The family of this 83-nucleotide RNA from Microbacterium mitrae is "Glycine riboswitch aptamer".
RNA sequence: UCACUCUGAAAAGCGAUCCGCCAGGAUCCGCCGACGGUGAAAGCGCGCAUGCGUGAAACUCUCAGGCUCAUGACAGAGGGGGA
Numbered sequence: 001u002c003a004c005u006c007u008g009a010a011a012a013g014c015g016a017u018c019c020g021c022c023a024g025g026a027u028c029c030g031c032c033g034a035c036g037g038u039g040a041a042a043g044c045g046c047g048c049a050u051g052c053g054u055g056a057a058a059c060u061c062u063c064a065g066g067c068u069c070a071u072g073a074c075a076g077a078g079g080g081g082g083a
Stems, first nucleotide, its partner, number of pairs: 001081002004078005015028004030067003033063002037061001039059001043054002
Dot-bracket structure: ((.(((((......((((......)))).(((((..(.(...((........))....).))).)))......))))).))..